[Rfam]
RNA sequence: GGAGACUUGAGGGGAGCUGCUCCUAGUACGAGAGGACCGGAGUGGACGCACCUCUGGUGUUCCGGUUGUCACGCCAGUGGCACUGCCGGGUAGCUAUGUGCGGACGGGAUAACCGCUGAAAGCAUCUAAGCGGGAAGCCCCCCCCAAGAUGAGGUCUCCCUGGACCCUUGAGGUCCCUGAAGGGCCCUCGAAGACCACGAGGUUGAUAGGCCGGGUGUGGAAGCGCAGCAAUGCGUGAAGCUAACCGGUACUAAUUGCCCGUGAG
Numbered sequence: 001g002g003a004g005a006c007u008u009g010a011g012g013g014g015a016g017c018u019g020c021u022c023c024u025a026g027u028a029c030g031a032g033a034g035g036a037c038c039g040g041a042g043u044g045g046a047c048g049c050a051c052c053u054c055u056g057g058u059g060u061u062c063c064g065g066u067u068g069u070c071a072c073g074c075c076a077g078u079g080g081c082a083c084u085g086c087c088g089g090g091u092a093g094c095u096a097u098g099u100g101c102g103g104a105c106g107g108g109a110u111a112a113c114c115g116c117u118g119a120a121a122g123c124a125u126c127u128a129a130g131c132g133g134g135a136a137g138c139c140c141c142c143c144c145c146a147a148g149a150u151g152a153g154g155u156c157u158c159c160c161u162g163g164a165c166c167c168u169u170g171a172g173g174u175c176c177c178u179g180a181a182g183g184g185c186c187c188u189c190g191a192a193g194a195c196c197a198c199g200a201g202g203u204u205g206a207u208a209g210g211c212c213g214g215g216u217g218u219g220g221a222a223g224c225g226c227a228g229c230a231a232u233g234c235g236u237g238a239a240g241c242u243a244a245c246c247g248g249u250a251c252u253a254a255u256u257g258c259c260c261g262u263g264a265g
Stems, first nucleotide, its partner, number of pairs: 001159008011145004017045007047102005055096003062089005067082006106140003113133005162177002179262001182260004186202005207253003210249005217241001223236005
Bacterial large subunit ribosomal RNA: a 265-nucleotide part of an RNA from Inmirania thermothiophila.